[Rfam]
Nucleotides: 084
Base pairs, nucleotide, nucleotide: 003081004080005079006078007077009075010074011073012072013071014070015069016068017067018066019065020064021063023061026058027057028056029055030054031053035050036049037048
Number, partner (000 for none) and nucleotide at each position: 001000g002000u003081g004080c005079c006078u007077g008000c009075u010074g011073g012072c013071u014070u015069g016068u017067c018066a019065c020064u021063u022000c023061c024000a025000a026058u027057a028056c029055a030054u031053g032000c033000u034000g035050u036049g037048g038000u039000c040000c041000c042000a043000c044000c045000a046000u047000c048037c049036c050035g051000u052000c053031c054030a055029u056028g057027u058026a059000g060000a061023g062000a063021g064020a065019g066018u067017g068016a069015c070014a071013g072012g073011u074010u075009g076000u077007c078006g079005g080004g081003c082000c083000u084000c